[Rfam]
RNA: Purine riboswitch aptamer
Organism: Caldisalinibacter kiritimatiensis
RNA sequence: AGAACUAAAUAAAACGACCCUCAUAUAAUUCUCGGAAUAUGGCUGAGAAGUUUCUACCGAGUGACCGUAAAUCACUUGACUAUGAGUGGAUUUGUAAAGAAC
Numbered sequence: 001a002g003a004a005c006u007a008a009a010u011a012a013a014a015c016g017a018c019c020c021u022c023a024u025a026u027a028a029u030u031c032u033c034g035g036a037a038u039a040u041g042g043c044u045g046a047g048a049a050g051u052u053u054c055u056a057c058c059g060a061g062u063g064a065c066c067g068u069a070a071a072u073c074a075c076u077u078g079a080c081u082a083u084g085a086g087u088g089g090a091u092u093u094g095u096a097a098a099g100a101a102c
Stems, first nucleotide, its partner, number of pairs: 018088001020086006029049007058078007